The family of this 138-nucleotide RNA from Penelope pileata is "Small nucleolar RNA SNORA5". The family's RNA type in Rfam is H/ACA-box small nucleolar RNA. The family's consensus secondary structure was predicted with RNAfold. Gene Ontology terms of the family: nucleolus and RNA processing. The family has 6 seed sequences and 2,226 matches in Rfam 15.1. About the family: ACA5 is a member of the H/ACA class of snoRNA that guide the sites of modification of uridines to pseudouridines.
[Rfam]
RNA sequence: UGCAGCCCCGUCAAAUUCAGCCCCUGCCUCCUCCGUGGCGGGGGCUGGCCAGCCGGCUGCCACAGCAACUUCUGUAGACCAUGGGCUCCAUGUCCCUUCCUGUGGGACCCUGGGGAUCAAAUCAUGCCAGAGACACCG
Numbered sequence: 001u002g003c004a005g006c007c008c009c010g011u012c013a014a015a016u017u018c019a020g021c022c023c024c025u026g027c028c029u030c031c032u033c034c035g036u037g038g039c040g041g042g043g044g045c046u047g048g049c050c051a052g053c054c055g056g057c058u059g060c061c062a063c064a065g066c067a068a069c070u071u072c073u074g075u076a077g078a079c080c081a082u083g084g085g086c087u088c089c090a091u092g093u094c095c096c097u098u099c100c101u102g103u104g105g106g107a108c109c110c111u112g113g114g115g116a117u118c119a120a121a122u123c124a125u126g127c128c129a130g131a132g133a134c135a136c137c138g
Base pairs, nucleotide, nucleotide: 002060003059004058005057018047019046020045021044022043023042024041025040026039027038028037075129077127086115087114088113089112090111